[Rfam]
RNA sequence: GUGAAGGUUAUUUGUACCGAUUCAAGGAUAGCUUUUGGUGCUAAACUACUUUGAGUCGGUACGAAUCACUUUCA
Numbered sequence: 001g002u003g004a005a006g007g008u009u010a011u012u013u014g015u016a017c018c019g020a021u022u023c024a025a026g027g028a029u030a031g032c033u034u035u036u037g038g039u040g041c042u043a044a045a046c047u048a049c050u051u052u053g054a055g056u057c058g059g060u061a062c063g064a065a066u067c068a069c070u071u072u073c074a
Stems, first nucleotide, its partner, number of pairs: 007069002010066015026050002031047001033045003
mir-3931 microRNA precursor family: a 74-nucleotide RNA sequence from Nephila pilipes. Rfam 15.1 lists 17 matches to the family in 16 species. Its family is annotated with RISC complex and miRNA-mediated post-transcriptional gene silencing in the Gene Ontology. A search with the family's covariance model found it, with a score of 54 bits.